[Rfam]
RNA sequence: UCCACGGUUAGGUGGAAUCUGAAGGAAGCCCAAGGCAAAACUCUGGUCUGACGAACAGAAACCAUAUAAGAGGUGAGUCGAGUGGAUAAGGCUGCGAAAGAAGCUGAAGUCCGAUAACUGUUAUAACUCGAAGCAUAAAUGUGGCAGAUAGAUGGAGUGAAAGAGUUCGCA
Numbered sequence: 001u002c003c004a005c006g007g008u009u010a011g012g013u014g015g016a017a018u019c020u021g022a023a024g025g026a027a028g029c030c031c032a033a034g035g036c037a038a039a040a041c042u043c044u045g046g047u048c049u050g051a052c053g054a055a056c057a058g059a060a061a062c063c064a065u066a067u068a069a070g071a072g073g074u075g076a077g078u079c080g081a082g083u084g085g086a087u088a089a090g091g092c093u094g095c096g097a098a099a100g101a102a103g104c105u106g107a108a109g110u111c112c113g114a115u116a117a118c119u120g121u122u123a124u125a126a127c128u129c130g131a132a133g134c135a136u137a138a139a140u141g142u143g144g145c146a147g148a149u150a151g152a153u154g155g156a157g158u159g160a161a162a163g164a165g166u167u168c169g170c171a
Stems, first nucleotide, its partner, number of pairs: 001016005030169001032167001036163001040158006046149005062144006073136003078131006084112004090105004
RNA: Group II catalytic intron D1-D4-3
Organism: Desemzia incerta